[Rfam]
RNA sequence: UGGCAGGCUAGUCCGGAUAGUCCGGCGUCAUCUAUAACCCGAAAUCGCCGAUAUGCGGGGGACGAAGCCGAUGGAAGAUGUCUGGAUCAUCCCCAAACCUGUGGUUUCAACUGAGAAACUCCGUCCUGCUUGGAUGAUGUUGAUUUAAGGGCUUGUUGGAGAACAUGUCUUUCUAUCUUGAUCGUGGGGACCAGUCCAGGCCCGGAAGGGAGCAGACCAACCAUGAACAACCGUCGCUUGUAGGGUUGCGGGGUGGAGGCGAGGCUGCAGACCAUUUGUGUAUGUGAAUGAUAGCAACCUGAGGCAUGCCUGCCA
Numbered sequence: 001u002g003g004c005a006g007g008c009u010a011g012u013c014c015g016g017a018u019a020g021u022c023c024g025g026c027g028u029c030a031u032c033u034a035u036a037a038c039c040c041g042a043a044a045u046c047g048c049c050g051a052u053a054u055g056c057g058g059g060g061g062a063c064g065a066a067g068c069c070g071a072u073g074g075a076a077g078a079u080g081u082c083u084g085g086a087u088c089a090u091c092c093c094c095a096a097a098c099c100u101g102u103g104g105u106u107u108c109a110a111c112u113g114a115g116a117a118a119c120u121c122c123g124u125c126c127u128g129c130u131u132g133g134a135u136g137a138u139g140u141u142g143a144u145u146u147a148a149g150g151g152c153u154u155g156u157u158g159g160a161g162a163a164c165a166u167g168u169c170u171u172u173c174u175a176u177c178u179u180g181a182u183c184g185u186g187g188g189g190a191c192c193a194g195u196c197c198a199g200g201c202c203c204g205g206a207a208g209g210g211a212g213c214a215g216a217c218c219a220a221c222c223a224u225g226a227a228c229a230a231c232c233g234u235c236g237c238u239u240g241u242a243g244g245g246u247u248g249c250g251g252g253g254u255g256g257a258g259g260c261g262a263g264g265c266u267g268c269a270g271a272c273c274a275u276u277u278g279u280g281u282a283u284g285u286g287a288a289u290g291a292u293a294g295c296a297a298c299c300u301g302a303g304g305c306a307u308g309c310c311u312g313c314c315a
Stems, first nucleotide, its partner, number of pairs: 001315008011063004015033004020028002038059004043054001067305003073299002077295001079293003083288001088284003092280001094278004099270010111258002118254007125244005132237001133235004138229002142177003147172006154165004182226006194217003201210003
RNA: Archaeal signal recognition particle RNA
Organism: Methanomethylovorans hollandica